[Rfam]
RNA sequence: UUGCAAGUUCAAGGCCGUAGCAGAAGUAUUCGCAGCACGGCCUGUCAGAUUCCAACAAAUCUCCAAAUUCUGUU
Numbered sequence: 001u002u003g004c005a006a007g008u009u010c011a012a013g014g015c016c017g018u019a020g021c022a023g024a025a026g027u028a029u030u031c032g033c034a035g036c037a038c039g040g041c042c043u044g045u046c047a048g049a050u051u052c053c054a055a056c057a058a059a060u061c062u063c064c065a066a067a068u069u070c071u072g073u074u
Stems, first nucleotide, its partner, number of pairs: 013042004019074007026038002047062005
About this RNA
This 74-nucleotide sequence from Crocodylus porosus belongs to the Rfam family "Mammalian CPEB3 ribozyme". From the family's description: The mammalian CPEB3 ribozyme is a self cleaving RNA located in the second intron of the CPEB3 gene which belongs to a family of genes regulating messenger RNA polyadenylation. The base pairs follow the family's consensus structure, which is taken from published work.